[Rfam]
RNA sequence: CCGCUAUCCGCAAUUCGGUCUAGCCGUAACGCGGAAGGUAUUCCUGCAUCCAAAGGGUGAAACACUCAUACCGGUGAAGCG
Numbered sequence: 001c002c003g004c005u006a007u008c009c010g011c012a013a014u015u016c017g018g019u020c021u022a023g024c025c026g027u028a029a030c031g032c033g034g035a036a037g038g039u040a041u042u043c044c045u046g047c048a049u050c051c052a053a054a055g056g057g058u059g060a061a062a063c064a065c066u067c068a069u070a071c072c073g074g075u076g077a078a079g080c081g
Stems, first nucleotide, its partner, number of pairs: 002081003007035005016026004037044002047076004053069001055067005
The family of this 81-nucleotide RNA sequence from Advenella faeciporci is "SucA RNA motif". Rfam links the family to the GO term regulation of translation. Lineage of the source: Bacteria > Pseudomonadati > Pseudomonadota > Alcaligenaceae > Advenella.